This 153-nucleotide RNA sequence from Myotis myotis belongs to the Rfam family "U1 spliceosomal RNA".
A reference for the family is Zwieb (1997), "The uRNA database", Nucleic Acids Res.
A search with the family's covariance model found it, with a score of 132 bits.
U1 is a small nuclear RNA (snRNA) component of the spliceosome (involved in pre-mRNA splicing).
[Rfam]
RNA sequence: AUACACACCUGGCAGGGGAGAUACCAUGAUCACGAAGGUGGUUUUCCCAGGGUGAGGCUUAUCCAUUGCACUCCGGAUGUGCUGACCCCUGCGAUUUCCCCAAAUGUGGGAAACUCGACUGCAUAAUUUGUGGUAGUGGGGGAAAAAAAACAA
Numbered sequence: 001a002u003a004c005a006c007a008c009c010u011g012g013c014a015g016g017g018g019a020g021a022u023a024c025c026a027u028g029a030u031c032a033c034g035a036a037g038g039u040g041g042u043u044u045u046c047c048c049a050g051g052g053u054g055a056g057g058c059u060u061a062u063c064c065a066u067u068g069c070a071c072u073c074c075g076g077a078u079g080u081g082c083u084g085a086c087c088c089c090u091g092c093g094a095u096u097u098c099c100c101c102a103a104a105u106g107u108g109g110g111a112a113a114c115u116c117g118a119c120u121g122c123a124u125a126a127u128u129u130g131u132g133g134u135a136g137u138g139g140g141g142g143a144a145a146a147a148a149a150a151c152a153a
Base pairs, nucleotide, nucleotide: 012122013121014120015119016048017047018046019045020044021043023042024041025040026039027038049090050089051088052087054086056083057082058081060079061078062077063076064075092117093116094115095113096112097111099109100108